[Rfam]
RNA sequence: UCGAAGUUUCAUCUACAAAUGGAUAAGAUUUUUUGUCUUAGGUAUCGAAUCGUGAAACAAGUAGCAAUACCCAGGUCUUGCUUGCGGACAUGGGGGUAUUGCUACUUU
Dot-bracket structure: .......(((((......)))))...................................((((((((((((.((.((((.......)))).))...)))))))))))).
Numbered sequence: 001u002c003g004a005a006g007u008u009u010c011a012u013c014u015a016c017a018a019a020u021g022g023a024u025a026a027g028a029u030u031u032u033u034u035g036u037c038u039u040a041g042g043u044a045u046c047g048a049a050u051c052g053u054g055a056a057a058c059a060a061g062u063a064g065c066a067a068u069a070c071c072c073a074g075g076u077c078u079u080g081c082u083u084g085c086g087g088a089c090a091u092g093g094g095g096g097u098a099u100u101g102c103u104a105c106u107u108u
Stems, first nucleotide, its partner, number of pairs: 008023005059107012072092002075089004